[Rfam]
RNA sequence: GGGCUUAUGAUGAUAAUAUACUUUAUCUUAGCGGAUUUCAGUGAGAUUUCGAUCAAUGAUCUGAUUGUUACACACACUGAAGCCU
Dot-bracket structure: (((((...........................................................................)))))

Small nucleolar RNA R11/Z151: an 85-nucleotide RNA from Lupinus angustifolius. The family has 5 seed sequences and 802 matches in Rfam 15.1. The family's consensus secondary structure was predicted with PFOLD.